This 140-nucleotide RNA from Lachnospiraceae bacterium 1_4_56FAA belongs to the Rfam family "Ribosomal protein L10 leader". It scores 71 bits against the family's covariance model. Rfam links the family to the GO term regulation of gene expression.

[Rfam]
RNA sequence: UAUUAUAGCAAUUGACUGCCGAAGACAGCAGGUGCCGUUAGGCAUAAGGUUUAAAACGCCUGCCGAGGAAGACAAGAUUCUUUUAGAAGAUGACUUAGUAAUCCUCUGUGCUUCGAGCCGGAGGAUUUUUUAUUAUUCGA
Number, nucleotide and partner (000 for none) at each position: 001u000002a000003u000004u000005a000006u000007a000008g000009c000010a000011a000012u000013u000014g000015a000016c000017u000018g000019c000020c000021g000022a000023a000024g000025a000026c000027a000028g063029c062030a061031g060032g059033u058034g043035c042036c041037g000038u000039u000040a000041g036042g035043c034044a000045u000046a000047a000048g000049g000050u000051u000052u000053a000054a000055a000056a000057c000058g033059c032060c031061u030062g029063c028064c000065g000066a000067g000068g000069a000070a000071g000072a000073c000074a000075a000076g000077a000078u000079u000080c000081u000082u000083u000084u000085a000086g000087a000088a000089g000090a000091u000092g000093a000094c000095u000096u000097a000098g000099u000100a000101a000102u125103c124104c123105u122106c121107u120108g119109u000110g118111c117112u000113u000114c000115g000116a000117g111118c110119c108120g107121g106122a105123g104124g103125a102126u000127u000128u000129u000130u000131u000132a000133u000134u000135a000136u000137u000138c000139g000140a000
The family's RNA type in Rfam is cis-regulatory leader.